[Rfam]
RNA sequence: UGCCAAAGUUUUCCUCGACAGUUAACUGCAGUCGGUUUCAUAAUUCGGCAGUUAACUGCCGAGGAACAU
Dot-bracket structure: ...........((.(((.(((((((((((..................))))))))))).))).))....
Numbered sequence: 001u002g003c004c005a006a007a008g009u010u011u012u013c014c015u016c017g018a019c020a021g022u023u024a025a026c027u028g029c030a031g032u033c034g035g036u037u038u039c040a041u042a043a044u045u046c047g048g049c050a051g052u053u054a055a056c057u058g059c060c061g062a063g064g065a066a067c068a069u
Stems, first nucleotide, its partner, number of pairs: 012065002015062003019058011
MIR2629 microRNA precursor family: a 69-nucleotide RNA from Medicago truncatula. NCBI's taxonomy places the organism under Eukaryota, Euphyllophyta, Mesangiospermae, Pentapetalae, Medicago. Its family is annotated with RISC complex and miRNA-mediated post-transcriptional gene silencing in the Gene Ontology.